[Rfam]
RNA sequence: GCCACUCUGGAAAGCGAUCCGCUCGUGCGGAUCCGCCGACGGUGAAAGCCGAGUCAUCCUGAUCGAUGUCUCGGCGAAACUCUCAGGCAGAUGACAGAGGGGGAGUU
Numbered sequence: 001g002c003c004a005c006u007c008u009g010g011a012a013a014g015c016g017a018u019c020c021g022c023u024c025g026u027g028c029g030g031a032u033c034c035g036c037c038g039a040c041g042g043u044g045a046a047a048g049c050c051g052a053g054u055c056a057u058c059c060u061g062a063u064c065g066a067u068g069u070c071u072c073g074g075c076g077a078a079a080c081u082c083u084c085a086g087g088c089a090g091a092u093g094a095c096a097g098a099g100g101g102g103g104a105g106u107u
Base pairs, nucleotide, nucleotide: 002102003101005099006098007097008096009095016033017032018031019030035088036087037086038084039083042082044080048075049074050073051072052071053070
Shown here is a 107-nucleotide RNA sequence from Microbacterium sp. C448, a member of the family "Glycine riboswitch aptamer". NCBI's taxonomy places the organism under Bacteria, Bacillati, Micrococcales, Microbacteriaceae, Microbacterium. A search with the family's covariance model found it, with a score of 48 bits.